[Rfam]
RNA sequence: GGGUGCGCACCAUUCGUGGUGUAGCAGGUUUCAGCGACGGUCGGGCCGCCUCG
Numbered sequence: 001g002g003g004u005g006c007g008c009a010c011c012a013u014u015c016g017u018g019g020u021g022u023a024g025c026a027g028g029u030u031u032c033a034g035c036g037a038c039g040g041u042c043g044g045g046c047c048g049c050c051u052c053g
Stems, first nucleotide, its partner, number of pairs: 005025002008021004035053003039050003
Background
A member of the RNA family "nhaA-I RNA" from Affinundibacterium fentianense, 53 nucleotides long. Rfam describes the family as follows. Acidobacteria, Alphaproteobacteria, Betaproteobacteria and Gammaproteobacteria, Verrucomicrobia, cand. division NC10. It scores 49 bits against the family's covariance model.